About this RNA
This 123-nucleotide RNA sequence from Gossypium mustelinum belongs to the Rfam family "MIR7504 microRNA precursor family".
[Rfam]
RNA sequence: AAUAGGAGAAUGACAAAUCAGGUUUUUCUUUCUAAUUUUUAGCAUUUUUAGUUGGAUUUAAAUGUUUUAAGGAGAAAAAAACUGAAAAUAAAGAGGAAAAAUCUGAUUUGUCAUCCUCUUAUU
Numbered sequence: 001a002a003u004a005g006g007a008g009a010a011u012g013a014c015a016a017a018u019c020a021g022g023u024u025u026u027u028c029u030u031u032c033u034a035a036u037u038u039u040u041a042g043c044a045u046u047u048u049u050a051g052u053u054g055g056a057u058u059u060a061a062a063u064g065u066u067u068u069a070a071g072g073a074g075a076a077a078a079a080a081a082c083u084g085a086a087a088a089u090a091a092a093g094a095g096g097a098a099a100a101a102u103c104u105g106a107u108u109u110g111u112c113a114u115c116c117u118c119u120u121a122u123u
Stems, first nucleotide, its partner, number of pairs: 001123008010114018029095003033091001035089005041083002045079004
Overview: Rfam links the family to the GO terms miRNA-mediated post-transcriptional gene silencing and RISC complex.